[Rfam]
RNA sequence: GCUCUGUGAUGAACCCCAUGCGUGUCAUCUGAGCCUGGCUUCCCUGUCAUCUCAGCCCAGGUAGUGUUCUACUUCCCAAGGCUGUUGUCUGGCCUGGAAAGGGGGGGAUCCCAGGCAAAGGAUCAACUUUGUAUUCUGAGAGC
Numbered sequence: 001g002c003u004c005u006g007u008g009a010u011g012a013a014c015c016c017c018a019u020g021c022g023u024g025u026c027a028u029c030u031g032a033g034c035c036u037g038g039c040u041u042c043c044c045u046g047u048c049a050u051c052u053c054a055g056c057c058c059a060g061g062u063a064g065u066g067u068u069c070u071a072c073u074u075c076c077c078a079a080g081g082c083u084g085u086u087g088u089c090u091g092g093c094c095u096g097g098a099a100a101g102g103g104g105g106g107g108a109u110c111c112c113a114g115g116c117a118a119a120g121g122a123u124c125a126a127c128u129u130u131g132u133a134u135u136c137u138g139a140g141a142g143c
Stems, first nucleotide, its partner, number of pairs: 001143004042107004047102002050099001
Record summary
The family of this 143-nucleotide RNA from Muntiacus reevesi is "Small nucleolar RNA SNORD10". The organism belongs to Muntiacus, within Eukaryota. Rfam links the family to the GO terms nucleolus and RNA processing. On this family, see Huttenhofer et al., EMBO J 2001: "RNomics: an experimental approach that identifies 201 candidates for novel, small, non-messenger RNAs in mouse". Pairs were carried over by alignment from the consensus structure, which was predicted with WAR.